[Rfam]
RNA sequence: UGACAUUGGUAGCGUUUUAGAAUUCCUACGCUUUACCGUCGCCUACGAAACUCGGCAAAGCGUUUGGAUUCUGAAACAUUAUCUCU
Numbered sequence: 001u002g003a004c005a006u007u008g009g010u011a012g013c014g015u016u017u018u019a020g021a022a023u024u025c026c027u028a029c030g031c032u033u034u035a036c037c038g039u040c041g042c043c044u045a046c047g048a049a050a051c052u053c054g055g056c057a058a059a060g061c062g063u064u065u066g067g068a069u070u071c072u073g074a075a076a077c078a079u080u081a082u083c084u085c086u
Base pairs, nucleotide, nucleotide: 011079014077015076016075017074018073019072020071021070023068024067025066028063029062030061031060032059033058034057036055037054

Rfam assigns this 86-nucleotide RNA sequence from Drosophila willistoni to the family "mir-927 microRNA precursor family". Its family is annotated with miRNA-mediated post-transcriptional gene silencing and RISC complex in the Gene Ontology. The literature on the family includes a 2010 paper in Nat Genet by Berezikov et al., "Evolutionary flux of canonical microRNAs and mirtrons in Drosophila". Taxonomically the source falls in Sophophora (Eukaryota, Opisthokonta, Mandibulata, Insecta). Rfam 15.1 lists 174 matches to the family in 143 species. The match comes from Rfam's covariance-model search (81 bits).